[Rfam]
RNA sequence: ACUGCUGAGCCAUCUCUCCAGUCCCCACAUAAUUUUUUUUCUAAAAUUUAAAUUAUAUGUAUUGGGGGCUGGAGAGAUGGCUCAGCAGU
Numbered sequence: 001a002c003u004g005c006u007g008a009g010c011c012a013u014c015u016c017u018c019c020a021g022u023c024c025c026c027a028c029a030u031a032a033u034u035u036u037u038u039u040u041c042u043a044a045a046a047u048u049u050a051a052a053u054u055a056u057a058u059g060u061a062u063u064g065g066g067g068g069c070u071g072g073a074g075a076g077a078u079g080g081c082u083c084a085g086c087a088g089u
Stems, first nucleotide, its partner, number of pairs: 002088026
RNA: mir-3473 microRNA precursor family